This 371-nucleotide RNA from Lachancea lanzarotensis belongs to the Rfam family "RNase MRP". Rfam 15.1 lists 3,510 matches to the family in 2,315 species. It is annotated as a ribozyme.
[Rfam]
RNA sequence: AUCCAUAGUCGAAGAAUCGUCACCGUUCGAAGCUUGCACAAUGGGCAUAUGUCUCAGGCUUUUUAAAAGCCAACCAAGCUUUGGGUAGAAAGUCUCCCACCAGACCGUAUGCGGAAAACGCGAUGAGAUUUAAAAAUUUUUUAUAAAUCCUUUAAAUCCACUCAUCAGAAGCAGAAAAAGGCGGAGGGCAGAUUUCGGUCAGCCAUCAUGUCUUGCUUUGUUUCUCCUGUCCCUCAGACCCUUGGUUCUGUAGGUGUCUUCGGUAAUGAGACCUACACAAAUGGGUUUCAAACCAUAGUUAUGACGAUUGUGACAAUGGCCUUUCGAGCCUUGUUAUAACCCAAUGGAGCUUACUGUUCUCGGCUCAUGGA
Number, nucleotide and partner (000 for none) at each position: 001a000002u371003c370004c369005a368006u367007a000008g364009u363010c362011g361012a360013a000014g000015a309016a308017u307018c306019g305020u304021c000022a000023c000024c000025g000026u000027u084028c083029g082030a081031a080032g079033c078034u000035u000036g000037c000038a000039c000040a000041a000042u000043g000044g000045g000046c000047a000048u000049a000050u000051g000052u000053c000054u000055c000056a000057g071058g070059c069060u068061u067062u066063u000064u000065a000066a062067a061068a060069g059070c058071c057072a000073a000074c000075c000076a000077a000078g033079c032080u031081u030082u029083g028084g027085g000086u000087a000088g000089a000090a352091a351092g350093u000094c349095u348096c347097c346098c000099a000100c000101c000102a000103g000104a000105c000106c000107g000108u000109a000110u122111g121112c120113g119114g000115a000116a000117a000118a000119c113120g112121c111122g110123a144124u143125g142126a141127g140128a139129u000130u000131u000132a000133a000134a000135a000136a000137u000138u000139u128140u127141u126142u125143a124144u123145a000146a000147a000148u000149c000150c000151u000152u000153u000154a000155a000156a000157u000158c000159c000160a000161c000162u000163c000164a000165u000166c000167a000168g000169a000170a000171g000172c000173a000174g000175a000176a000177a000178a000179a000180g000181g000182c000183g000184g000185a000186g000187g000188g000189c000190a000191g000192a000193u000194u000195u000196c000197g000198g000199u000200c000201a000202g000203c000204c000205a000206u000207c000208a000209u000210g000211u000212c000213u000214u000215g000216c000217u000218u000219u000220g000221u000222u000223u000224c000225u000226c000227c000228u000229g000230u000231c000232c000233c000234u000235c000236a000237g000238a000239c000240c000241c000242u000243u000244g000245g000246u000247u000248c000249u000250g000251u000252a000253g000254g000255u000256g000257u000258c000259u000260u000261c000262g000263g000264u000265a000266a000267u000268g000269a000270g000271a000272c000273c000274u000275a000276c000277a000278c000279a000280a000281a000282u000283g000284g000285g000286u000287u000288u000289c000290a000291a000292a000293c000294c000295a000296u000297a000298g000299u000300u000301a000302u000303g000304a020305c019306g018307a017308u016309u015310g000311u336312g335313a334314c333315a332316a331317u000318g000319g000320c000321c000322u000323u000324u000325c000326g000327a000328g000329c000330c000331u316332u315333g314334u313335u312336a311337u000338a000339a000340c000341c000342c000343a000344a000345u000346g097347g096348a095349g094350c092351u091352u090353a000354c000355u000356g000357u000358u000359c000360u012361c011362g010363g009364c008365u000366c000367a006368u005369g004370g003371a002